[Rfam]
RNA sequence: GGUCAUGAGUGCCAGCGCGAAGCCCCGGCUUGCUGGCCGGCAACCCUCCAACCGCGGUGGGGUGCCCCGGGUGAAGACCUGGUCCAUCGCUGCACUCCUCGGACAGGUGCGAUGGGCAAGCGCGGACA
Numbered sequence: 001g002g003u004c005a006u007g008a009g010u011g012c013c014a015g016c017g018c019g020a021a022g023c024c025c026c027g028g029c030u031u032g033c034u035g036g037c038c039g040g041c042a043a044c045c046c047u048c049c050a051a052c053c054g055c056g057g058u059g060g061g062g063u064g065c066c067c068c069g070g071g072u073g074a075a076g077a078c079c080u081g082g083u084c085c086a087u088c089g090c091u092g093c094a095c096u097c098c099u100c101g102g103a104c105a106g107g108u109g110c111g112a113u114g115g116g117c118a119a120g121c122g123c124g125g126a127c128a
Stems, first nucleotide, its partner, number of pairs: 001079004009038001011037006021030002039066003044062003048057002082117009
Description:
SAM (S-adenosyl methionine) riboswitch aptamer: a 128-nucleotide RNA sequence from Pseudonocardiaceae bacterium YIM PH 21723. Rfam's curators write: SAM-IV is a mRNA element that regulates gene expression via direct sensing of S-adenosylmethionine (SAM or AdoMet). The source organism's lineage runs through Bacteria, Bacillati, Actinomycetes, Pseudonocardiales and Pseudonocardiaceae. It scores 114 bits against the family's covariance model.